Rfam assigns this 108-nucleotide RNA from Miscanthus lutarioriparius to the family "MIR5565 microRNA precursor family". The organism belongs to Miscanthus, within Eukaryota. The family has 7 seed sequences and 3,346 matches in Rfam 15.1. A search with the family's covariance model found it, with a score of 83 bits. Its family is annotated with miRNA-mediated post-transcriptional gene silencing and RISC complex in the Gene Ontology.

[Rfam]
Nucleotides: 108
Stems, first nucleotide, its partner, number of pairs: 004107002007104007016095017035076009046065001
Number, partner (000 for none) and nucleotide at each position: 001000g002000c003000a004107u005106g006000c007104g008103u009102a010101u011100u012099u013098a014000c015000u016095u017094c018093a019092a020091u021090c022089c023088a024087u025086a026085u027084g028083u029082g030081u031080u032079g033000g034000a035076g036075u037074g038073g039072a040071u041070u042069g043068a044000a045000a046065u047000a048000g049000a050000a051000u052000u053000u054000a055000g056000u057000u058000u059000a060000a061000u062000u063000u064000c065046a066000c067000u068043u069042u070041g071040a072039u073038c074037c075036a076035c077000u078000u079032c080031a081030a082029c083028a084027c085026a086025u087024g088023u089022g090021g091020a092019u093018u094017g095016a096000g097000a098013u099012a100011a101010a102009u103008a104007u105000a106005u107004a108000c